[Rfam]
RNA: SAM riboswitch aptamer (S box leader)
RNA sequence: UUCUUAUCACGAGAGGUAGAGGGACUGGCCCUAUGAUACCCGGCAACCUGAAUGAUUAUUAUCAUUUAACGGUGCUAAUUCCAGCAGGUAUGUCAAUACCUGAAAGAUAAGAA
Numbered sequence: 001u002u003c004u005u006a007u008c009a010c011g012a013g014a015g016g017u018a019g020a021g022g023g024a025c026u027g028g029c030c031c032u033a034u035g036a037u038a039c040c041c042g043g044c045a046a047c048c049u050g051a052a053u054g055a056u057u058a059u060u061a062u063c064a065u066u067u068a069a070c071g072g073u074g075c076u077a078a079u080u081c082c083a084g085c086a087g088g089u090a091u092g093u094c095a096a097u098a099c100c101u102g103a104a105a106g107a108u109a110a111g112a113a
Stems, first nucleotide, its partner, number of pairs: 001113008013041001015040003021031003025084004042076004047072002049068006080105001085102006
Dot-bracket structure: ((((((((....(.(((...(((.[[[[)))......))))((((.((((((((........))))))..))))))...(]]]]((((((......))))))..)))))))))